[Rfam]
RNA sequence: CCAAGGCCAAAAAGGCUUGGUUCAUAGGGCCGCCGUGUCAUUCGGCGGCUUGUCGUACCCCAUGUUGCUCGUUGGAGGAUGUGGUUAUGCGAA
Numbered sequence: 001c002c003a004a005g006g007c008c009a010a011a012a013a014g015g016c017u018u019g020g021u022u023c024a025u026a027g028g029g030c031c032g033c034c035g036u037g038u039c040a041u042u043c044g045g046c047g048g049c050u051u052g053u054c055g056u057a058c059c060c061c062a063u064g065u066u067g068c069u070c071g072u073u074g075g076a077g078g079a080u081g082u083g084g085u086u087a088u089g090c091g092a093a
Stems, first nucleotide, its partner, number of pairs: 001020005007015002027051009054089004060084007068077003
Dot-bracket structure: (((((.((.....)))))))......(((((((((.......)))))))))..((((..(((((((.(((....)))))))))).))))....
Rfam assigns this 93-nucleotide sequence from Chelatococcus reniformis to the family "Repression of heat shock gene expression (ROSE) element". The literature on the family includes a 2001 paper in Nucleic Acids Res by Nocker et al., "A mRNA-based thermosensor controls expression of rhizobial heat shock genes". The source organism's lineage runs through Bacteria, Pseudomonadota, Alphaproteobacteria, Chelatococcaceae and Chelatococcus. Rfam describes the family as follows. This family represents a 5' UTR cis-regulatory element found in heat shock mRNAs and is known as the ROSE (repression of heat shock gene expression) element. The ROSE element is a negative regulator of heat shock gene expression. By type it is an RNA thermoregulator.